RNA sequence: UUAAAUAAUAAACAACUUACUCAUAUAAUAGUGGGGAUAUGGCCCACGAGUUUCUACCAAUUCGCCGUAAAUGAAUUGACUAUGAGAGGCAAUUAUCCAAAA
Numbered sequence: 001u002u003a004a005a006u007a008a009u010a011a012a013c014a015a016c017u018u019a020c021u022c023a024u025a026u027a028a029u030a031g032u033g034g035g036g037a038u039a040u041g042g043c044c045c046a047c048g049a050g051u052u053u054c055u056a057c058c059a060a061u062u063c064g065c066c067g068u069a070a071a072u073g074a075a076u077u078g079a080c081u082a083u084g085a086g087a088g089g090c091a092a093u094u095a096u097c098c099a100a101a102a
Stems, first nucleotide, its partner, number of pairs: 018088001020086006029049001031047005058078007

Purine riboswitch aptamer: a 102-nucleotide RNA sequence from Candidatus Kurthia intestinigallinarum. Riboswitches are metabolite binding domains within certain messenger RNAs that serve as precision sensors for their corresponding targets. A search with the family's covariance model found it, with a score of 88 bits. The base pairs follow the family's consensus structure, which is taken from published work. The source organism's lineage runs through Bacteria, Bacillati, Bacilli, Caryophanaceae and Kurthia.